A member of the RNA family "Alphaproteobacteria transfer-messenger RNA" from Microvirga aerilata, 359 nucleotides long. Rfam describes the family as follows. Bacterial tmRNA, also known as 10Sa RNA or SsrA, is named for its dual tRNA and mRNA-like properties. A search with the family's covariance model found it, with a score of 226 bits. NCBI's taxonomy places the organism under Bacteria, Pseudomonadota, Hyphomicrobiales, Methylobacteriaceae, Microvirga.
RNA sequence: GCUCUUUCAAAAUCGCUCAGCUCCGCCUAUAUUGGAGGGGUCGGUCGCAAGGCCGGCUAUGGCGAUAAACGGCUACUGGAAUAAACCCAUCUGACCCGGGGGCGGUACCCGGCGCAUCCACCAGAAUCCGGUCUCGACCUGGGUUUCGGCAGGGGCGAAAGCAAGAUCGACGAGGGCCUAAAGGGUAGACUUUCGCUCGGCAUGGUUCCGCCGACAUCGGGCCGGUUCAGUCGUUGCCAACGACAACUAUGCUCCGGUUGCGGUAGCCGCGUCAGCGGCUCCUGACGCCGGUUCGAAAGUCCUGGCGGUUCACGCCGUCAGGCGGGGUUCGGAGGCGCCCGGCGACGCAAGCCUUCUCG
Numbered sequence: 001g002c003u004c005u006u007u008c009a010a011a012a013u014c015g016c017u018c019a020g021c022u023c024c025g026c027c028u029a030u031a032u033u034g035g036a037g038g039g040g041u042c043g044g045u046c047g048c049a050a051g052g053c054c055g056g057c058u059a060u061g062g063c064g065a066u067a068a069a070c071g072g073c074u075a076c077u078g079g080a081a082u083a084a085a086c087c088c089a090u091c092u093g094a095c096c097c098g099g100g101g102g103c104g105g106u107a108c109c110c111g112g113c114g115c116a117u118c119c120a121c122c123a124g125a126a127u128c129c130g131g132u133c134u135c136g137a138c139c140u141g142g143g144u145u146u147c148g149g150c151a152g153g154g155g156c157g158a159a160a161g162c163a164a165g166a167u168c169g170a171c172g173a174g175g176g177c178c179u180a181a182a183g184g185g186u187a188g189a190c191u192u193u194c195g196c197u198c199g200g201c202a203u204g205g206u207u208c209c210g211c212c213g214a215c216a217u218c219g220g221g222c223c224g225g226u227u228c229a230g231u232c233g234u235u236g237c238c239a240a241c242g243a244c245a246a247c248u249a250u251g252c253u254c255c256g257g258u259u260g261c262g263g264u265a266g267c268c269g270c271g272u273c274a275g276c277g278g279c280u281c282c283u284g285a286c287g288c289c290g291g292u293u294c295g296a297a298a299g300u301c302c303u304g305g306c307g308g309u310u311c312a313c314g315c316c317g318u319c320a321g322g323c324g325g326g327g328u329u330c331g332g333a334g335g336c337g338c339c340c341g342g343c344g345a346c347g348c349a350a351g352c353c354u355u356c357u358c359g
Stems, first nucleotide, its partner, number of pairs: 040057007061197005071190001073188005086176003090173002096112005113157003117154003198213004203224003207221003325340004331356006